[Rfam]
RNA sequence: GAAACGCACCGGGGGUGUCCGAAUCCGCUAGCGUUCCGCUAGCAGGUUCGGGCUGAGAAAGUCCCUUCGAACCUGAACAGGAUAAUACCUGCGUAGGGAGUGUGCUUUUUCUUUUCU
Numbered sequence: 001g002a003a004a005c006g007c008a009c010c011g012g013g014g015g016u017g018u019c020c021g022a023a024u025c026c027g028c029u030a031g032c033g034u035u036c037c038g039c040u041a042g043c044a045g046g047u048u049c050g051g052g053c054u055g056a057g058a059a060a061g062u063c064c065c066u067u068c069g070a071a072c073c074u075g076a077a078c079a080g081g082a083u084a085a086u087a088c089c090u091g092c093g094u095a096g097g098g099a100g101u102g103u104g105c106u107u108u109u110u111c112u113u114u115u116c117u
Stems, first nucleotide, its partner, number of pairs: 006105004011066004016060001017053009072097004078091004